RNA sequence: AAACGUUCUCGGGGCGGGGUGGAAUUCCCUACCGGCGGUAAUGGCAGCCUAAAAGCUGCUUAGCCCGCGAGCGCUCUAUAAAGCCUAGUUUUAUAGAGGUCUAGCAGACUUCGGUGAGAUUCCGAGGCCGACGGUUAUAGUCCGGAUGAGAGAGAACGCUU
Number, nucleotide and partner (000 for none) at each position: 001a000002a000003a000004c158005g157006u156007u155008c154009u153010c152011g000012g000013g000014g000015c000016g000017g029018g028019g027020u000021g000022g000023a000024a000025u000026u000027c019028c018029c017030u000031a141032c140033c130034g129035g068036c067037g066038g065039u000040a000041a000042u000043g000044g000045c000046a000047g000048c000049c000050u000051a000052a000053a000054a000055g000056c000057u000058g000059c000060u000061u000062a000063g128064c127065c038066c037067g036068c035069g000070a000071g105072c104073g000074c000075u000076c000077u000078a000079u000080a000081a000082a000083g000084c000085c000086u000087a000088g000089u000090u000091u000092u000093a000094u000095a000096g000097a000098g000099g000100u000101c000102u000103a000104g072105c071106a000107g000108a000109c000110u126111u125112c124113g123114g122115u000116g000117a000118g000119a000120u000121u000122c114123c113124g112125a111126g110127g064128c063129c034130g033131a000132c144133g143134g142135u000136u000137a000138u000139a000140g032141u031142c134143c133144g132145g000146a000147u000148g000149a000150g000151a000152g010153a009154g008155a007156a006157c005158g004159c000160u000161u000